MIR8622 microRNA precursor family: a 211-nucleotide RNA sequence from Ectocarpus siliculosus. Gene Ontology terms of the family: miRNA-mediated post-transcriptional gene silencing and RISC complex. The family has 3 seed sequences and 93 matches in Rfam 15.1. Pairs were carried over by alignment from the consensus structure, which was predicted with RNAalifold. The match comes from Rfam's covariance-model search (212 bits).

RNA sequence: CCGAAAUCUGCGCCGGAACCAAGCGGCAUCCAACAUUUGUCACAGCCGUGCUCGCCGCCACUGACCCCAAUCUCCUGAACUGCGGGUUUACAGCAGUAGCUGAUGACACUAGCUACUGCUGACGACCCGUGGUUCAGGGGUUUGUGGUCCGUGGCGGUGAUCGCGGCUGUGACAAAUGUUGGAUGCCGCUUGGCUCUGCCGCAGAUUUCGG
Numbered sequence: 001c002c003g004a005a006a007u008c009u010g011c012g013c014c015g016g017a018a019c020c021a022a023g024c025g026g027c028a029u030c031c032a033a034c035a036u037u038u039g040u041c042a043c044a045g046c047c048g049u050g051c052u053c054g055c056c057g058c059c060a061c062u063g064a065c066c067c068c069a070a071u072c073u074c075c076u077g078a079a080c081u082g083c084g085g086g087u088u089u090a091c092a093g094c095a096g097u098a099g100c101u102g103a104u105g106a107c108a109c110u111a112g113c114u115a116c117u118g119c120u121g122a123c124g125a126c127c128c129g130u131g132g133u134u135c136a137g138g139g140g141u142u143u144g145u146g147g148u149c150c151g152u153g154g155c156g157g158u159g160a161u162c163g164c165g166g167c168u169g170u171g172a173c174a175a176a177u178g179u180u181g182g183a184u185g186c187c188g189c190u191u192g193g194c195u196c197u198g199c200c201g202c203a204g205a206u207u208u209c210g211g
Stems, first nucleotide, its partner, number of pairs: 001211012014198004019193015035177007043169008052160002055157007063149004068144003072140001074138007084128003091121011